[Rfam]
RNA: Putative RNA-dependent RNA polymerase ribosomal frameshift site
Organism: Polerovirus WYDVGPV
RNA sequence: GGGAAACGCCAAGGCGGCAGCGUCCGCCGUACCAACCGCA
Number, nucleotide and partner (000 for none) at each position: 001g000002g000003g000004a000005a000006a000007c000008g000009c000010c000011a000012a000013g028014g027015c026016g025017g024018c000019a000020g039021c038022g037023u000024c017025c016026g015027c014028c013029g000030u000031a000032c000033c000034a000035a000036c000037c022038g021039c020040a000